[Rfam]
RNA sequence: UAUCAAGAUUAAACUAUAAUAUAGCUGGCAUGUGCUAUAUUGUCAUCCCCCCUGCUUAAGAAAAUAUUGUUUCUUAACUAUACCUGACUGCUAUGUAGCAGCCAGGGAUGCUUCAUCUUAUACAU
Number, nucleotide and partner (000 for none) at each position: 001u000002a000003u000004c054005a053006a000007g051008a000009u000010u000011a000012a000013a000014c000015u000016a043017u042018a041019a040020u039021a038022u037023a036024g035025c034026u000027g000028g000029c000030a000031u000032g000033u000034g025035c024036u023037a022038u021039a020040u019041u018042g017043u016044c000045a000046u000047c000048c000049c000050c000051c007052c000053u005054g004055c000056u000057u000058a000059a000060g000061a000062a000063a000064a000065u000066a000067u000068u000069g000070u000071u000072u000073c000074u000075u000076a000077a000078c000079u000080a000081u000082a000083c106084c105085u104086g103087a000088c101089u100090g099091c098092u000093a000094u000095g000096u000097a000098g091099c090100a089101g088102c000103c086104a085105g084106g083107g000108a000109u000110g000111c000112u000113u000114c000115a000116u000117c000118u000119u000120a000121u000122a000123c000124a000125u000
The record is a 125-nucleotide RNA sequence from Jaculus jaculus, which matches "Small nucleolar RNA SNORA63" in Rfam. E3 belongs to the H/ACA class of snoRNAs and is involved in the processing of eukaryotic pre-rRNA and has regions of complementarity to 18S rRNA. E3 is encoded in introns in the gene for protein synthesis initiation factor 4AII. A reference for the family is Mishra and Eliceiri (1997), "Three small nucleolar RNAs that are involved in ribosomal RNA precursor processing", Proc Natl Acad Sci U S A. It scores 102 bits against the family's covariance model. Its family is annotated with nucleolus and RNA processing in the Gene Ontology.